Rfam assigns this 52-nucleotide sequence from Prosthecomicrobium pneumaticum to the family "ffh sRNA". The literature on the family includes a 2009 paper in BMC Genomics by Meyer et al., "Identification of candidate structured RNAs in the marine organism 'Candidatus Pelagibacter ubique'". Rfam classes the family as a small RNA. The family's consensus secondary structure is taken from published work.
Nucleotides: 052
Base pairs, nucleotide, nucleotide: 016044017043018042019041020040021039022038025035026034027033028032
Number, partner (000 for none) and nucleotide at each position: 001000g002000a003000u004000c005000c006000c007000g008000g009000a010000g011000g012000u013000c014000a015000c016044c017043g018042u019041c020040c021039g022038c023000c024000g025035g026034c027033g028032c029000g030000u031000c032028g033027c034026g035025c036000u037000c038022g039021c040020g041019g042018g043017c044016g045000c046000g047000a048000u049000c050000g051000u052000c